[Rfam]
Small nucleolar RNA SNORA8: a 138-nucleotide RNA from Otolemur garnettii. ACA8 is a member of the H/ACA class of snoRNA that guide the sites of modification of uridines to pseudouridines. Rfam links the family to the GO terms nucleolus and RNA processing. Its Rfam clan is "SNORA8 clan". NCBI's taxonomy places the organism under Eukaryota, Eumetazoa, Amniota, Galagidae, Otolemur.
RNA sequence: UGCACUGCAUGGUAUCUGCACCCAGCAGCUUACUCCUGCUGGGGUGUUCCAAGGUCAGUGCCAUAGAAAUUCAGUAUUUGGCAUGUUGGUUUUCUUGGCUUUGUGCAUGUUAAACCUGGUGUUUCUAUUGAUACAGUA
Number, nucleotide and partner (000 for none) at each position: 001u000002g061003c060004a059005c058006u057007g056008c000009a000010u000011g000012g000013u000014a055015u054016c053017u052018g047019c046020a045021c044022c043023c042024a040025g039026c038027a037028g036029c000030u000031u000032a000033c000034u000035c000036c028037u027038g026039c025040u024041g000042g023043g022044g021045u020046g019047u018048u000049c000050c000051a000052a017053g016054g015055u014056c007057a006058g005059u004060g003061c002062c000063a000064u127065a126066g125067a124068a123069a122070u121071u119072c118073a117074g116075u000076a000077u000078u000079u000080g000081g106082c105083a104084u103085g000086u000087u000088g000089g000090u000091u000092u000093u000094c000095u000096u000097g000098g000099c000100u000101u000102u000103g084104u083105g082106c081107a000108u000109g000110u000111u000112a000113a000114a000115c000116c074117u073118g072119g071120u000121g070122u069123u068124u067125c066126u065127a064128u000129u000130g000131a000132u000133a000134c000135a000136g000137u000138a000